[Rfam]
RNA sequence: ACACACAUGUAUCAGAUUACCCGUCUCCUAGGCCUACUACUUCUCGCAUCUCCGGUGCGCGGUAUGCCUGUUGGCGGCAGUCGAGUCUGAUUCCGUCCGAAUAGCAGAAAGCCCGCGCCAAUGCGCGGGCUUUUUU
Numbered sequence: 001a002c003a004c005a006c007a008u009g010u011a012u013c014a015g016a017u018u019a020c021c022c023g024u025c026u027c028c029u030a031g032g033c034c035u036a037c038u039a040c041u042u043c044u045c046g047c048a049u050c051u052c053c054g055g056u057g058c059g060c061g062g063u064a065u066g067c068c069u070g071u072u073g074g075c076g077g078c079a080g081u082c083g084a085g086u087c088u089g090a091u092u093c094c095g096u097c098c099g100a101a102u103a104g105c106a107g108a109a110a111g112c113c114c115g116c117g118c119c120a121a122u123g124c125g126c127g128g129g130c131u132u133u134u135u136u
Stems, first nucleotide, its partner, number of pairs: 006095001009093001012090007021077005038064004045059004108133011
Rfam assigns this 136-nucleotide RNA sequence from Enterobacillus tribolii to the family "Leucine operon leader". At least 6 amino acid operons are known to be regulated by attenuation. In each a leader sequence of 150-200 bp is found upstream of the first gene in the operon. This leader sequence can assume two different secondary structures known as the terminator and the anti-terminator structure. Its family is annotated with leucine biosynthetic process in the Gene Ontology. A reference for the family is Kolter and Yanofsky (1982), "Attenuation in amino acid biosynthetic operons", Annu Rev Genet. NCBI's taxonomy places the organism under Bacteria, Pseudomonadati, Pseudomonadota, Hafniaceae, Enterobacillus. The family's RNA type in Rfam is cis-regulatory leader.